[Rfam]
RNA: mir-2060 microRNA precursor family
Organism: Branchiostoma belcheri
RNA sequence: ACAGAUCUGUGUGUGGAUGGUGUUCGGCACCAAGGGCAGGAAUGUUUGCCUGUGUGUGGAUGGUGUUCAGCACCAAGGGCAGGAAUGUUUUCCU
Numbered sequence: 001a002c003a004g005a006u007c008u009g010u011g012u013g014u015g016g017a018u019g020g021u022g023u024u025c026g027g028c029a030c031c032a033a034g035g036g037c038a039g040g041a042a043u044g045u046u047u048g049c050c051u052g053u054g055u056g057u058g059g060a061u062g063g064u065g066u067u068c069a070g071c072a073c074c075a076a077g078g079g080c081a082g083g084a085a086u087g088u089u090u091u092c093c094u
Stems, first nucleotide, its partner, number of pairs: 006083005018075007026067007034055001036053005042047001